[Rfam]
RNA sequence: CUCACUUGGAGAUCUUGUUAAAAUGCAGAUUCUGAGUCAGUAGGGCUGGGGCUGCUCCUGUGAUUCUGCAUUUCUAACCAGUUCCCAGGUGAUGCAGA
Dot-bracket structure: ..(((...(.(..((.(((((((.(((((.((.............................)).))))).))).)))).)).).)...))).......
mir-544 microRNA precursor family: a 98-nucleotide RNA from Phocoena sinus. Pairs were carried over by alignment from the consensus structure, which was predicted with RNAalifold.